[Rfam]
RNA sequence: AUAGUUAAUUUAAUUCUUGCUCCUCAUAAUCCUGACCUUUGACUUAGGAAAUCAAAUAUUUGGGAUAAACUAUCAAAUUCCGGGGAAGCCUUAAAGCUUCUGAUACCAAGCAUUUAUUGAAAAAUAAAUUGUGGAUGAACUAAUCUAUCAUGUAUGGUAAUAAGUCUGAAGAUAUAUGAAAAUAUAAUAGGUAAUCGCGGAUCUAAAUCAGUAAUAUGUAAUAAUAUUGCUGUAAAAGAGCAACGAGUAAAAGGUAGUUGAUAUGGUAAUAAAUUACCAUAUUUAAGAUGUACUCUAGCGGGUUUCGAAAGAAACUA
Numbered sequence: 001a002u003a004g005u006u007a008a009u010u011u012a013a014u015u016c017u018u019g020c021u022c023c024u025c026a027u028a029a030u031c032c033u034g035a036c037c038u039u040u041g042a043c044u045u046a047g048g049a050a051a052u053c054a055a056a057u058a059u060u061u062g063g064g065a066u067a068a069a070c071u072a073u074c075a076a077a078u079u080c081c082g083g084g085g086a087a088g089c090c091u092u093a094a095a096g097c098u099u100c101u102g103a104u105a106c107c108a109a110g111c112a113u114u115u116a117u118u119g120a121a122a123a124a125u126a127a128a129u130u131g132u133g134g135a136u137g138a139a140c141u142a143a144u145c146u147a148u149c150a151u152g153u154a155u156g157g158u159a160a161u162a163a164g165u166c167u168g169a170a171g172a173u174a175u176a177u178g179a180a181a182a183u184a185u186a187a188u189a190g191g192u193a194a195u196c197g198c199g200g201a202u203c204u205a206a207a208u209c210a211g212u213a214a215u216a217u218g219u220a221a222u223a224a225u226a227u228u229g230c231u232g233u234a235a236a237a238g239a240g241c242a243a244c245g246a247g248u249a250a251a252a253g254g255u256a257g258u259u260g261a262u263a264u265g266g267u268a269a270u271a272a273a274u275u276a277c278c279a280u281a282u283u284u285a286a287g288a289u290g291u292a293c294u295c296u297a298g299c300g301g302g303u304u305u306c307g308a309a310a311g312a313a314a315c316u317a
Stems, first nucleotide, its partner, number of pairs: 001040001003038002006035001008033001045055001047053001068259005074253001079201004083196002089191003202239002209232002214227004243296001245295005261282009302315005
The family of this 317-nucleotide RNA sequence from Monosporascus sp. mg162 is "Group I catalytic intron". Taxonomically the source falls in Monosporascus (Eukaryota, Opisthokonta, Sordariomycetes, Xylariomycetidae). The base pairs follow the family's consensus structure, which is taken from published work. It scores 56 bits against the family's covariance model. Rfam describes the family as follows. Group I catalytic introns are large self-splicing ribozymes. A reference for the family is Cech (1990), "Self-splicing of group I introns", Annu Rev Biochem.